[Rfam]
Rfam assigns this 83-nucleotide RNA from Aminipila butyrica to the family "c-di-GMP-I riboswitch aptamer". The organism belongs to Aminipila, within Bacteria. A search with the family's covariance model found it, with a score of 57 bits. Gene Ontology term of the family: cyclic-di-GMP binding.
RNA sequence: CUAAAUCUUGAGCAAAGCAGUUGAAAAGCUGUGACGCAAAGCUAUAGGGCCUGAACUCGGAGAGAUGGCAGCCAGUUGCACAC
Numbered sequence: 001c002u003a004a005a006u007c008u009u010g011a012g013c014a015a016a017g018c019a020g021u022u023g024a025a026a027a028g029c030u031g032u033g034a035c036g037c038a039a040a041g042c043u044a045u046a047g048g049g050c051c052u053g054a055a056c057u058c059g060g061a062g063a064g065a066u067g068g069c070a071g072c073c074a075g076u077u078g079c080a081c082a083c
Base pairs, nucleotide, nucleotide: 012037013036017032018031019030020029021028022027040077041076042075043074047073048072049069050068051067056064057063058062
Dot-bracket structure: ...........((...((((((....))))))...))..((((...(((((....(((...)))..)))..))))))......